RNA sequence: CAAUGGCGCAUUAUUACUCACGGUACGAGUUUGAUGUGUCACAGCGCGUACCAAAAGUAAUAAUGACCCAUCG
Numbered sequence: 001c002a003a004u005g006g007c008g009c010a011u012u013a014u015u016a017c018u019c020a021c022g023g024u025a026c027g028a029g030u031u032u033g034a035u036g037u038g039u040c041a042c043a044g045c046g047c048g049u050a051c052c053a054a055a056a057g058u059a060a061u062a063a064u065g066a067c068c069c070a071u072c073g
Stems, first nucleotide, its partner, number of pairs: 009065010022052006029045001
The record is a 73-nucleotide sequence from Sarcophilus harrisii, which matches "mir-126 microRNA precursor family" in Rfam. A reference for the family is Altuvia et al. (2005), "Clustering and conservation patterns of human microRNAs", Nucleic Acids Res. Rfam links the family to the GO terms RISC complex and miRNA-mediated post-transcriptional gene silencing. The match comes from Rfam's covariance-model search (63 bits). Taxonomically the source falls in Sarcophilus (Eukaryota, Euteleostomi, Tetrapoda, Dasyuridae).